[Rfam]
The family of this 73-nucleotide RNA sequence from Clupea harengus is "Small nucleolar RNA SNORD19". Gene Ontology terms of the family: RNA processing and nucleolus.
RNA sequence: GAGAAAUGAGGAGCUCACGCUUGACUGACUUUUUGUGAGGACAAAAUAAUCCAACUCUGAUCUCAUCUGUUCU
Numbered sequence: 001g002a003g004a005a006a007u008g009a010g011g012a013g014c015u016c017a018c019g020c021u022u023g024a025c026u027g028a029c030u031u032u033u034u035g036u037g038a039g040g041a042c043a044a045a046a047u048a049a050u051c052c053a054a055c056u057c058u059g060a061u062c063u064c065a066u067c068u069g070u071u072c073u
Stems, first nucleotide, its partner, number of pairs: 001064004
Dot-bracket structure: ((((........................................................)))).........
It scores 37 bits against the family's covariance model. The literature on the family includes a 2001 paper in EMBO J by Huttenhofer et al., "RNomics: an experimental approach that identifies 201 candidates for novel, small, non-messenger RNAs in mouse".